[Rfam]
RNA: mir-184 microRNA precursor family
Organism: Pieris brassicae
RNA sequence: ACAUAGUUGUGCCCUUGUCAUUCUUCCUGCCCUGUGUGUUAUACAACUGGACGGAGAACUGAUAAGGGCAUAACUUGUA
Dot-bracket structure: ...........((((((((((((.(((..((.................))..)))))).)))))))))...........